[Rfam]
RNA sequence: GACCUUAUAUUGCUUAAUCCUUAUGGAGUGGGGGACCCAUCUUUGUGCAUAGCACUCGGGGUGAAUCCUUCGUUAGAGGGUAGGGCUACUUUCAAAGUCCGAGUCCGACAGCUAACCCCAUCAGCGUUUUGGAAGGAGGUU
Number, nucleotide and partner (000 for none) at each position: 001g000002a000003c000004c000005u000006u000007a000008u000009a000010u000011u126012g125013c124014u123015u000016a000017a000018u027019c026020c025021u000022u000023a000024u000025g020026g019027a018028g121029u120030g119031g118032g117033g116034g000035a000036c000037c000038c058039a000040u000041c000042u000043u000044u000045g000046u000047g000048c000049a000050u000051a000052g000053c000054a000055c000056u000057c000058g038059g106060g105061g104062u000063g000064a000065a000066u000067c080068c079069u078070u077071c000072g000073u000074u000075a000076g000077a070078g069079g068080g067081u000082a000083g100084g099085g098086c097087u000088a000089c000090u000091u000092u000093c000094a000095a000096a000097g086098u085099c084100c083101g000102a000103g000104u061105c060106c059107g000108a000109c000110a000111g000112c000113u000114a000115a000116c033117c032118c031119c030120a029121u028122c000123a014124g013125c012126g011127u000128u000129u000130u000131g000132g000133a000134a000135g000136g000137a000138g000139g000140u000141u000

c-di-AMP riboswitch aptamer (ydaO/yuaA leader): a 141-nucleotide RNA sequence from Bacillus sp. FJAT-27231. The source organism's lineage runs through Bacteria, Bacillota, Caryophanales, Bacillaceae and Bacillus. The pairing is the family consensus, mapped onto this sequence. A search with the family's covariance model found it, with a score of 90 bits.